[Rfam]
RNA sequence: ACACGUUCUCAGGGCGGGGUGGAAUCCCCCACCGGCGGUGAUGCCAUCCGGAUCGUUCCGGGUGGACGAGCCCGCGAGCGCCACGGCAUCCUCCCGAUGCGGUGGGUCAGCAGAUUCCGGUGCGAUCCCGGAGCCGACGGUCACAGUCCGGAUGGAAGAGAACGCGG
Numbered sequence: 001a002c003a004c005g006u007u008c009u010c011a012g013g014g015c016g017g018g019g020u021g022g023a024a025u026c027c028c029c030c031a032c033c034g035g036c037g038g039u040g041a042u043g044c045c046a047u048c049c050g051g052a053u054c055g056u057u058c059c060g061g062g063u064g065g066a067c068g069a070g071c072c073c074g075c076g077a078g079c080g081c082c083a084c085g086g087c088a089u090c091c092u093c094c095c096g097a098u099g100c101g102g103u104g105g106g107u108c109a110g111c112a113g114a115u116u117c118c119g120g121u122g123c124g125a126u127c128c129c130g131g132a133g134c135c136g137a138c139g140g141u142c143a144c145a146g147u148c149c150g151g152a153u154g155g156a157a158g159a160g161a162a163c164g165c166g167g
Stems, first nucleotide, its partner, number of pairs: 004164007017029003031147002033136002035075004070134002078111002116132005138150003